[Rfam]
RNA: DUF805b RNA
RNA sequence: CAGGAGGAAGCUGAAAAUCCGUAAGAGAGUAGGCA
Numbered sequence: 001c002a003g004g005a006g007g008a009a010g011c012u013g014a015a016a017a018u019c020c021g022u023a024a025g026a027g028a029g030u031a032g033g034c035a
Stems, first nucleotide, its partner, number of pairs: 003020003010034003